[Rfam]
RNA: mir-395 microRNA precursor family
RNA sequence: GUGUUUUCUUGAGUUCCCUUCCAAACACUUCAGAAGAAACAACAACAGACAUAGCUAAUAUCCCAAAUUAAAACUUCAUGAGAUGCAGCUUUCAGCUGAAGUGUUUGGGGGAACUCUGGAAGAUAU
Numbered sequence: 001g002u003g004u005u006u007u008c009u010u011g012a013g014u015u016c017c018c019u020u021c022c023a024a025a026c027a028c029u030u031c032a033g034a035a036g037a038a039a040c041a042a043c044a045a046c047a048g049a050c051a052u053a054g055c056u057a058a059u060a061u062c063c064c065a066a067a068u069u070a071a072a073a074c075u076u077c078a079u080g081a082g083a084u085g086c087a088g089c090u091u092u093c094a095g096c097u098g099a100a101g102u103g104u105u106u107g108g109g110g111g112a113a114c115u116c117u118g119g120a121a122g123a124u125a126u
Stems, first nucleotide, its partner, number of pairs: 005122005011116010023106011036093004